[Rfam]
The family of this 77-nucleotide sequence from Myotis davidii is "mir-9229 microRNA precursor family".
RNA sequence: GAGACACCCCCUAUAGAGCAGGACUUGCGUCAGUGGGUUGUUGGUGCUCACUGAGUCUGCCCCUUGGGUGUGUCACU
Numbered sequence: 001g002a003g004a005c006a007c008c009c010c011c012u013a014u015a016g017a018g019c020a021g022g023a024c025u026u027g028c029g030u031c032a033g034u035g036g037g038u039u040g041u042u043g044g045u046g047c048u049c050a051c052u053g054a055g056u057c058u059g060c061c062c063c064u065u066g067g068g069u070g071u072g073u074c075a076c077u
Base pairs, nucleotide, nucleotide: 001076003074004073005072006071007070010068011067012066013065016062018060019059020058022057023056024055030054031053032052033051034050035049036048037047039044
Gene Ontology terms of the family: RISC complex and miRNA-mediated post-transcriptional gene silencing.
Taxonomically the source falls in Myotis (Eukaryota, Opisthokonta, Bilateria, Tetrapoda).